[Rfam]
RNA sequence: CGCAACGAAGGGCAGAACAGGCAGCUGCCGCCCGGACGUGAGACCGCAAAUACUCAUGCUGUUGGAGAUGCCGGAGCGCCGACCGGCUCGUUGCG
Numbered sequence: 001c002g003c004a005a006c007g008a009a010g011g012g013c014a015g016a017a018c019a020g021g022c023a024g025c026u027g028c029c030g031c032c033c034g035g036a037c038g039u040g041a042g043a044c045c046g047c048a049a050a051u052a053c054u055c056a057u058g059c060u061g062u063u064g065g066a067g068a069u070g071c072c073g074g075a076g077c078g079c080c081g082a083c084c085g086g087c088u089c090g091u092u093g094c095g
Stems, first nucleotide, its partner, number of pairs: 001095008011029005020080003031065001037058006070087005
RNA: skipping-rope RNA